Background: Shown here is a 76-nucleotide sequence from Pseudolycoriella hygida, a member of the family "mir-9/mir-79 microRNA precursor family". NCBI's taxonomy places the organism under Eukaryota, Hexapoda, Dicondylia, Nematocera, Pseudolycoriella. The literature on the family includes a 2001 paper in Science by Lagos-Quintana et al., "Identification of novel genes coding for small expressed RNAs". Rfam links the family to the GO terms RISC complex and miRNA-mediated post-transcriptional gene silencing.

RNA sequence: CUAUAGUUGUCUUUGGUUAUCUAGCUGUAUGAGUGUAAAUAACGUCAUAAAGCUAGCUUACCGAAGUUAAUAUUGG
Numbered sequence: 001c002u003a004u005a006g007u008u009g010u011c012u013u014u015g016g017u018u019a020u021c022u023a024g025c026u027g028u029a030u031g032a033g034u035g036u037a038a039a040u041a042a043c044g045u046c047a048u049a050a051a052g053c054u055a056g057c058u059u060a061c062c063g064a065a066g067u068u069a070a071u072a073u074u075g076g
Base pairs, nucleotide, nucleotide: 001076002075003074007070008069009068011066012065013064014063015062016061017060019058021056022055023054024053025052026051028049029048030047031046032045